[Rfam]
Nucleotides: 171
Stems, first nucleotide, its partner, number of pairs: 002158003006153002010149011023135002026133002029131001031129001033128002038103002041100001047096001050094005061082005107125002110122001113119001
Number, partner (000 for none) and nucleotide at each position: 001000u002158u003157g004156a005000a006153g007152g008000c009000g010149u011148g012147g013146a014145g015144a016143c017142u018141g019140a020139a021000g022000u023135c024134c025000u026133c027132u028000c029131u030000a031129u032000a033128u034127c035000c036000a037000c038103a039102g040000a041100a042000c043000a044000g045000g046000u047096a048000u049000g050094g051093c052092a053091c054090a055000g056000a057000c058000a059000g060000u061082g062081g063080c064079a065078g066000u067000g068000c069000a070000g071000c072000u073000u074000u075000c076000c077000a078065c079064u080063g081062u082061c083000c084000c085000a086000c087000c088000a089000a090054u091053g092052u093051g094050c095000c096047u097000c098000a099000g100041u101000c102039c103038u104000a105000g106000c107125c108124u109000a110122g111000g112000a113119g114000g115000a116000c117000c118000g119113u120000g121000g122110u123000g124108a125107g126000g127034g128033g129031a130000a131029g132027a133026g134024g135023g136000c137000u138000a139020u140019u141018c142017a143016g144015u145014c146013u147012c148011c149010a150000u151000g152007c153006c154000c155000u156004u157003c158002a159000a160000u161000c162000u163000u164000u165000u166000g167000c168000u169000a170000c171000u
Shown here is a 171-nucleotide sequence from Diceros bicornis, a member of the family "TUC338".
Taxonomically the source falls in Diceros bicornis (Eukaryota, Metazoa, Deuterostomia, Diceros).
The family's consensus secondary structure was predicted with WAR.
The family's RNA type in Rfam is cis-regulatory element.